[Rfam]
RNA sequence: GGACAGGGCCGUGACUGGCGUGAGCGGAUGGGGUCAACCAUCAGGAAGCGGCCCUGGUCGUUGUGACCUCGUGCCGCGCGCCUGGGCCUUGACC
Numbered sequence: 001g002g003a004c005a006g007g008g009c010c011g012u013g014a015c016u017g018g019c020g021u022g023a024g025c026g027g028a029u030g031g032g033g034u035c036a037a038c039c040a041u042c043a044g045g046a047a048g049c050g051g052c053c054c055u056g057g058u059c060g061u062u063g064u065g066a067c068c069u070c071g072u073g074c075c076g077c078g079c080g081c082c083u084g085g086g087c088c089u090u091g092a093c094c
Base pairs, nucleotide, nucleotide: 004056005055006054007053008052009051010050011049012048015045016044017082018081019080020079021078028041029040030039031038071089073087074086075085

This 94-nucleotide RNA from Natronosporangium hydrolyticum belongs to the Rfam family "ZMP/ZTP riboswitch aptamer (pfl RNA motif)". Lineage of the source: Bacteria > Actinomycetes > Micromonosporales > Micromonosporaceae > Natronosporangium. A search with the family's covariance model found it, with a score of 55 bits.